[Rfam]
RNA sequence: GACCGAUUGGCCUAGUGGUUUUAGGGCGUCUGUCUUACAUAAUUGAAGCUCACAGAAGGUCCCCGGUUCGAUCCCGGGAUCGGUCA
Dot-bracket structure: (((((((..((((..........)))).(((((..................))))).....(((((.......)))))))))))).